[Rfam]
RNA sequence: UUUUCUACAAAUCGGAAUGACCUGAAAUUUGGGCGUGUGUUCAUAAAAAAUAAGCUCAUCUACGAAAAAUAUAAAAAAAAAUAUUUUACAUGAAAAAAAUUGACCAAAAUACCCCCAAAAUGUUUUGGGAUGUUUUGGUCAAUAUUGUUUUUGCGAAUUAUUUUUUUUAUAUUUUUAUUAGGUGCACCUCACUAAAGUGUACAUACGCUCCAAAUUUCAGGUCAUUCCAAUUCGUAGAAAA
Numbered sequence: 001u002u003u004u005c006u007a008c009a010a011a012u013c014g015g016a017a018u019g020a021c022c023u024g025a026a027a028u029u030u031g032g033g034c035g036u037g038u039g040u041u042c043a044u045a046a047a048a049a050a051u052a053a054g055c056u057c058a059u060c061u062a063c064g065a066a067a068a069a070u071a072u073a074a075a076a077a078a079a080a081a082u083a084u085u086u087u088a089c090a091u092g093a094a095a096a097a098a099a100u101u102g103a104c105c106a107a108a109a110u111a112c113c114c115c116c117a118a119a120a121u122g123u124u125u126u127g128g129g130a131u132g133u134u135u136u137g138g139u140c141a142a143u144a145u146u147g148u149u150u151u152u153g154c155g156a157a158u159u160a161u162u163u164u165u166u167u168u169a170u171a172u173u174u175u176u177a178u179u180a181g182g183u184g185c186a187c188c189u190c191a192c193u194a195a196a197g198u199g200u201a202c203a204u205a206c207g208c209u210c211c212a213a214a215u216u217u218c219a220g221g222u223c224a225u226u227c228c229a230a231u232u233c234g235u236a237g238a239a240a241a
Stems, first nucleotide, its partner, number of pairs: 001241008010232003014228019033208001035206006042199003060181003065176008074167006096146002099143013113129002117124002
The record is a 241-nucleotide RNA from Amborella trichopoda, which matches "MIR8562 microRNA precursor family" in Rfam. Gene Ontology terms of the family: miRNA-mediated post-transcriptional gene silencing and RISC complex. The base pairs follow the family's consensus structure, which was predicted with RNAalifold.